[Rfam]
RNA sequence: ACAGUACAAACUGAGCAGGCGAUGCCCGAAUGGGCGUGGGGCUGGGCCGUCCAACGAACGGCAGCGGAUUGCAAUUUUUGCACAUCUGCGGGACAGUA
Number, nucleotide and partner (000 for none) at each position: 001a000002c000003a000004g000005u000006a000007c000008a000009a000010a097011c096012u095013g094014a000015g000016c092017a000018g043019g042020c041021g000022a037023u036024g035025c034026c033027c032028g000029a000030a000031u000032g027033g026034g025035c024036g023037u022038g000039g000040g000041g020042c019043u018044g000045g000046g062047c061048c060049g059050u058051c000052c000053a000054a000055c000056g000057a000058a050059c049060g048061g047062c046063a000064g089065c088066g087067g086068a085069u084070u000071g000072c000073a000074a000075u000076u000077u000078u000079u000080g000081c000082a000083c000084a069085u068086c067087u066088g065089c064090g000091g000092g016093a000094c013095a012096g011097u010098a000
RNA: NiCo (Nickel/Cobalt) riboswitch aptamer
Organism: Lacrimispora xylanisolvens